[Rfam]
RNA sequence: GCCUCCGAGGAUGAAUAACAAAAAACUUUCGUUCUUCCAAGUUGCCCCAUGCGGAAAAUUAUUGGAGACCUGAACUGAGGAGGU
Numbered sequence: 001g002c003c004u005c006c007g008a009g010g011a012u013g014a015a016u017a018a019c020a021a022a023a024a025a026c027u028u029u030c031g032u033u034c035u036u037c038c039a040a041g042u043u044g045c046c047c048c049a050u051g052c053g054g055a056a057a058a059u060u061a062u063u064g065g066a067g068a069c070c071u072g073a074a075c076u077g078a079g080g081a082g083g084u
Base pairs, nucleotide, nucleotide: 003082004081005080006079
The family of this 84-nucleotide RNA sequence from Senna tora is "Small nucleolar RNA Z159/U59". Its family is annotated with RNA processing and nucleolus in the Gene Ontology. NCBI's taxonomy places the organism under Eukaryota, Mesangiospermae, Gunneridae, rosids, Senna. Rfam classes the family as a C/D-box small nucleolar RNA. Rfam 15.1 lists 1,401 matches to the family in 272 species. Clan: SNORD59 clan. A search with the family's covariance model found it, with a score of 65 bits.